Notes
Rfam assigns this 216-nucleotide RNA from Gasterosteus aculeatus to the family "Small nucleolar RNA U3". The family's RNA type in Rfam is C/D-box small nucleolar RNA. A reference for the family is Zwieb (1997), "The uRNA database", Nucleic Acids Res. Rfam 15.1 lists 19,072 matches to the family in 1,215 species. The base pairs follow the family's consensus structure, which is taken from published work. Small nucleolar RNAs (snoRNAs) are involved in the processing and modification of rRNA in the nucleolus. There are two main classes of snoRNAs: the box C/D class, and the box H/ACA class. U3 snoRNA is a member of the box C/D class. Rfam's curators put it in the seed alignment.

RNA sequence: AAGACUAUACUUUCAGGGAUCAUUUCUAUAGUUUCUGACUUGAGAAAUGCGUUUCUAAUUUGUUUGGUCUCGCUAACCACGAUGAAGAGAUGGUGAUACUCUUCCCUGAGCGCGAAGCGGGCGGACAGACUUGAUUCAUUUCAUACGCUGUCCGCUUUUGAUGACCGUUCUUUGUCUCCUCGGGGACAUAGAGGGGAAGAGUAUGUGCGGAGUGGU
Numbered sequence: 001a002a003g004a005c006u007a008u009a010c011u012u013u014c015a016g017g018g019a020u021c022a023u024u025u026c027u028a029u030a031g032u033u034u035c036u037g038a039c040u041u042g043a044g045a046a047a048u049g050c051g052u053u054u055c056u057a058a059u060u061u062g063u064u065u066g067g068u069c070u071c072g073c074u075a076a077c078c079a080c081g082a083u084g085a086a087g088a089g090a091u092g093g094u095g096a097u098a099c100u101c102u103u104c105c106c107u108g109a110g111c112g113c114g115a116a117g118c119g120g121g122c123g124g125a126c127a128g129a130c131u132u133g134a135u136u137c138a139u140u141u142c143a144u145a146c147g148c149u150g151u152c153c154g155c156u157u158u159u160g161a162u163g164a165c166c167g168u169u170c171u172u173u174g175u176c177u178c179c180u181c182g183g184g185g186a187c188a189u190a191g192a193g194g195g196g197a198a199g200a201g202u203a204u205g206u207g208c209g210g211a212g213u214g215g216u
Stems, first nucleotide, its partner, number of pairs: 001041003005037001007034001009032003015027004051064001055062001076216005096204012110168003120156004126150003132143003171190001173188006